Rfam assigns this 187-nucleotide RNA from Pleurocapsales cyanobacterium LEGE 06147 to the family "Antisense RNA which regulates isiA expression". For this family Rfam cites "An internal antisense RNA regulates expression of the photosynthesis gene isiA" (Duhring et al., Proc Natl Acad Sci U S A, 2006).
[Rfam]
RNA sequence: AAUAGCCAAAGAUCACUGCGGGAUUGAGGGUAGGGUUGGUAAUGACGCGGACAUCACCACCACCAGGAGCCCAGGUAUCAUAGACACCACCGAAGAACAUGGCUUUAAAUACUAACAAGAGCGCGCCACAUCCAAGCAAAAUUAGGUGAUAACCGAGGAUGUUGGUCAUUUGGUUCUUAUCUUUCCA
Numbered sequence: 001a002a003u004a005g006c007c008a009a010a011g012a013u014c015a016c017u018g019c020g021g022g023a024u025u026g027a028g029g030g031u032a033g034g035g036u037u038g039g040u041a042a043u044g045a046c047g048c049g050g051a052c053a054u055c056a057c058c059a060c061c062a063c064c065a066g067g068a069g070c071c072c073a074g075g076u077a078u079c080a081u082a083g084a085c086a087c088c089a090c091c092g093a094a095g096a097a098c099a100u101g102g103c104u105u106u107a108a109a110u111a112c113u114a115a116c117a118a119g120a121g122c123g124c125g126c127c128a129c130a131u132c133c134a135a136g137c138a139a140a141a142u143u144a145g146g147u148g149a150u151a152a153c154c155g156a157g158g159a160u161g162u163u164g165g166u167c168a169u170u171u172g173g174u175u176c177u178u179a180u181c182u183u184u185c186c187a
Base pairs, nucleotide, nucleotide: 145184146183148181149180150179155176156175157174